[Rfam]
RNA: ASpks TB sRNA
RNA sequence: CUUGACCGAGCCGAGCCACAGGGGCCGGUCCUCCGCGCGGUCCUGCCCGUACGUGGCCAGCAGGGCCUGCGCCUC
Numbered sequence: 001c002u003u004g005a006c007c008g009a010g011c012c013g014a015g016c017c018a019c020a021g022g023g024g025c026c027g028g029u030c031c032u033c034c035g036c037g038c039g040g041u042c043c044u045g046c047c048c049g050u051a052c053g054u055g056g057c058c059a060g061c062a063g064g065g066c067c068u069g070c071g072c073c074u075c
Stems, first nucleotide, its partner, number of pairs: 015025003031071001033069001038065001043060003047056003
Dot-bracket structure: ..............(((.....))).....(.(....(....(((.(((....))).)))....)...).)....